Lysine riboswitch aptamer: a 166-nucleotide RNA from Slackia heliotrinireducens.

RNA sequence: CAACACGAUAGAGGCGCGGAUGCGAAGGGUUUCGGGCCAGCCGGCAGGCGAUUAUCCCGAAGCGAGGCAAUUCCGCCGAAUCGUUGCGACAGGCAUGGCGCAACGGUGGGCUGUCGGGGAACACCCGUCAGACUGUCUGCAAAAUUGCAGGUGCGCUAUCUUGCUG
Numbered sequence: 001c002a003a004c005a006c007g008a009u010a011g012a013g014g015c016g017c018g019g020a021u022g023c024g025a026a027g028g029g030u031u032u033c034g035g036g037c038c039a040g041c042c043g044g045c046a047g048g049c050g051a052u053u054a055u056c057c058c059g060a061a062g063c064g065a066g067g068c069a070a071u072u073c074c075g076c077c078g079a080a081u082c083g084u085u086g087c088g089a090c091a092g093g094c095a096u097g098g099c100g101c102a103a104c105g106g107u108g109g110g111c112u113g114u115c116g117g118g119g120a121a122c123a124c125c126c127g128u129c130a131g132a133c134u135g136u137c138u139g140c141a142a143a144a145u146u147g148c149a150g151g152u153g154c155g156c157u158a159u160c161u162u163g164c165u166g
Base pairs, nucleotide, nucleotide: 007160008159009158010157011156016076017075018074019073020072024068031061032060033059034058035057036056080107081106082105083104084103085102086101087100088099090097091096108134109133111131112130113129115127116126117125118124136151137150138149139148140147141146

The source organism's lineage runs through Bacteria, Coriobacteriia, Eggerthellaceae, Slackia and Slackia heliotrinireducens.
Riboswitches are metabolite binding domains within certain messenger RNAs that serve as precision sensors for their corresponding targets.